Overview
The family of this 134-nucleotide RNA sequence from Erinaceus europaeus is "U11 spliceosomal RNA". The match comes from Rfam's covariance-model search (40 bits). Rfam links the family to the GO terms U11 snRNP, pre-mRNA 5'-splice site binding and mRNA 5'-splice site recognition. The base pairs follow the family's consensus structure, which is taken from published work.

RNA sequence: AAAAAGGGCUUCUGUCGUGAGUGACACACUUAGGGCAGCUUGUUUGCUCUAUGUAAGGAAUCAGCAUCAAGAAGAUUCAACUCUAAUUAUCAGUUGUGAUGUCUAGAGCUGACAGAAAUAGUCCUUUGGCAUAU
Dot-bracket structure: .......(.((.(((((....))))).((.((((((((.....)))))))).))...(((((...........))))))).)................((((.(((((..(((.......))))))))))))..